[Rfam]
This 341-nucleotide RNA sequence from Heyndrickxia oleronia belongs to the Rfam family "Group I catalytic intron". A search with the family's covariance model found it, with a score of 90 bits. The family's consensus secondary structure is taken from published work. The family has 12 seed sequences and 5,602 matches in Rfam 15.1. The source organism's lineage runs through Bacteria, Bacillati, Bacillota, Bacillaceae and Heyndrickxia. Rfam's curators write: Group I catalytic introns are large self-splicing ribozymes. They catalyse their own excision from mRNA, tRNA and rRNA precursors in a wide range of organisms.
RNA sequence: AUUACAACUUUUAAGGUAAUUUGUUAUAGGGCGUCUUAACCAGUAAUGGGUAAGAAUAUGACUGGGUGAAUUGCUGGGAAUUUCUAAAGCUUUUCUUACCACAACGUAAUUGGAAACGAUAAACGUGAUGGUUAGAAAAAAGGAAAGAUGUACAAUGGAUAAUCAGCAGCCAAGUCCCUGUCUCGAAAGAGUGGGAAAGGUUCAACGACUAGAGAAUACAGUCUAAGGGUGAUUUUUCCUAUGAUUAUGAAUCUCGUAGGGCAGUGAAACUGUUCGAAGUGCCCAGCUCCUUGUUAUUUCAAGGAUGAAGAUAUAGUCUAUUCUGUAUCCGAAAGGAACAG
Numbered sequence: 001a002u003u004a005c006a007a008c009u010u011u012u013a014a015g016g017u018a019a020u021u022u023g024u025u026a027u028a029g030g031g032c033g034u035c036u037u038a039a040c041c042a043g044u045a046a047u048g049g050g051u052a053a054g055a056a057u058a059u060g061a062c063u064g065g066g067u068g069a070a071u072u073g074c075u076g077g078g079a080a081u082u083u084c085u086a087a088a089g090c091u092u093u094u095c096u097u098a099c100c101a102c103a104a105c106g107u108a109a110u111u112g113g114a115a116a117c118g119a120u121a122a123a124c125g126u127g128a129u130g131g132u133u134a135g136a137a138a139a140a141a142g143g144a145a146a147g148a149u150g151u152a153c154a155a156u157g158g159a160u161a162a163u164c165a166g167c168a169g170c171c172a173a174g175u176c177c178c179u180g181u182c183u184c185g186a187a188a189g190a191g192u193g194g195g196a197a198a199g200g201u202u203c204a205a206c207g208a209c210u211a212g213a214g215a216a217u218a219c220a221g222u223c224u225a226a227g228g229g230u231g232a233u234u235u236u237u238c239c240u241a242u243g244a245u246u247a248u249g250a251a252u253c254u255c256g257u258a259g260g261g262c263a264g265u266g267a268a269a270c271u272g273u274u275c276g277a278a279g280u281g282c283c284c285a286g287c288u289c290c291u292u293g294u295u296a297u298u299u300c301a302a303g304g305a306u307g308a309a310g311a312u313a314u315a316g317u318c319u320a321u322u323c324u325g326u327a328u329c330c331g332a333a334a335g336g337a338a339c340a341g
Base pairs, nucleotide, nucleotide: 007034008033010031011030012029040049041048042047062286063285064284065283067281068280072168073167074166075165076164077163082159083158084157169201170200175195176194177193182189183188205319207318208317209316210315211314288305289304290303291302292301293300325339326338328337329336330335
Dot-bracket structure: ......((.(((................))).)).....(((....)))............[[[[.[[...((((((....(((........................................................................)))...))))))((....(((....((....))...)))....))...(.(((((....................................................................]].]]]].((((((......))))))........)))))).....((.(((....)))))..